[Rfam]
Shown here is a 146-nucleotide sequence from Parahoeflea olei, a member of the family "FMN riboswitch aptamer (RFN element)". Taxonomically the source falls in Parahoeflea (Bacteria, Pseudomonadati, Pseudomonadota, Rhizobiaceae). The match comes from Rfam's covariance-model search (114 bits).
RNA sequence: AAGGGUUCUCAGGGCGGGGUGAAAUUCCCCACCGGCGGUAUCCGGCAAUGCCGGGAGCCCGCGAGCGCUUUCACCCCUGGUGAAAGGCAGCAGAUCCGGUGCGAUGCCGGAGCCGACGGUUAGAGUCCGGAUGAAAGAGAGCAUCG
Numbered sequence: 001a002a003g004g005g006u007u008c009u010c011a012g013g014g015c016g017g018g019g020u021g022a023a024a025u026u027c028c029c030c031a032c033c034g035g036c037g038g039u040a041u042c043c044g045g046c047a048a049u050g051c052c053g054g055g056a057g058c059c060c061g062c063g064a065g066c067g068c069u070u071u072c073a074c075c076c077c078u079g080g081u082g083a084a085a086g087g088c089a090g091c092a093g094a095u096c097c098g099g100u101g102c103g104a105u106g107c108c109g110g111a112g113c114c115g116a117c118g119g120u121u122a123g124a125g126u127c128c129g130g131a132u133g134a135a136a137g138a139g140a141g142c143a144u145c146g
Base pairs, nucleotide, nucleotide: 003144005142006141007140008139009138010137017029018028019027031126032125033115034114035062036061037060038059057113058112065091066090095111096110097109098108099107117129118128119127